Description:
Shown here is a 73-nucleotide RNA from Peptococcaceae bacterium CEB3, a member of the family "tRNA". Rfam classes the family as a transfer RNA.
[Rfam]
Nucleotides: 073
Stems, first nucleotide, its partner, number of pairs: 001072005007066001010025004027043005049065005
Number, partner (000 for none) and nucleotide at each position: 001072g002071g003070g004069c005068g006000a007066u008000u009000g010025g011024c012023u013022c014000a015000g016000u017000c018000g019000g020000g021000a022013g023012a024011g025010c026000g027043c028042a029041u030040c031039c032000u033000u034000c035000a036000c037000a038000c039031g040030g041029a042028u043027g044000a045000g046000g047000u048000c049065a050064c051063u052062g053061g054000u055000u056000c057000g058000a059000u060000c061053c062052c063051a064050g065049u066007a067000c068005c069004g070003c071002c072001c073000a

Background
Pairs were carried over by alignment from the consensus structure, which is taken from published work. It scores 60 bits against the family's covariance model.